[Rfam]
RNA sequence: CAAUAGAAUGGCUUUAUGGGCGGUCGGCUAAUCUCCCGGAAGGGAGGUGAUGCCUGUGAGCGUAUAUGAAGCACUAUCCAUCAUGUUCCAAUUUGGGCUGUGGAUAUUCGCGUUAUUGACGUUUGUGGUGACGCUGCUAAUAUACCUGCACACAAAGAAAUAGACCGCCCCCGGCAAAGGUAGCGAUCUAUUUCUGGACCUUUGAACUAGCCACCGCCUUUGAAGCGGCCAUUGCACUGGAGUCGUGUUCCCGCACGGCUC
Numbered sequence: 001c002a003a004u005a006g007a008a009u010g011g012c013u014u015u016a017u018g019g020g021c022g023g024u025c026g027g028c029u030a031a032u033c034u035c036c037c038g039g040a041a042g043g044g045a046g047g048u049g050a051u052g053c054c055u056g057u058g059a060g061c062g063u064a065u066a067u068g069a070a071g072c073a074c075u076a077u078c079c080a081u082c083a084u085g086u087u088c089c090a091a092u093u094u095g096g097g098c099u100g101u102g103g104a105u106a107u108u109c110g111c112g113u114u115a116u117u118g119a120c121g122u123u124u125g126u127g128g129u130g131a132c133g134c135u136g137c138u139a140a141u142a143u144a145c146c147u148g149c150a151c152a153c154a155a156a157g158a159a160a161u162a163g164a165c166c167g168c169c170c171c172c173g174g175c176a177a178a179g180g181u182a183g184c185g186a187u188c189u190a191u192u193u194c195u196g197g198a199c200c201u202u203u204g205a206a207c208u209a210g211c212c213a214c215c216g217c218c219u220u221u222g223a224a225g226c227g228g229c230c231a232u233u234g235c236a237c238u239g240g241a242g243u244c245g246u247g248u249u250c251c252c253g254c255a256c257g258g259c260u261c
Stems, first nucleotide, its partner, number of pairs: 001234004006229001009213005018170003022165001024163001029050001031048001033046005058147001060145001062143003071086003096138003185194002214228004240261009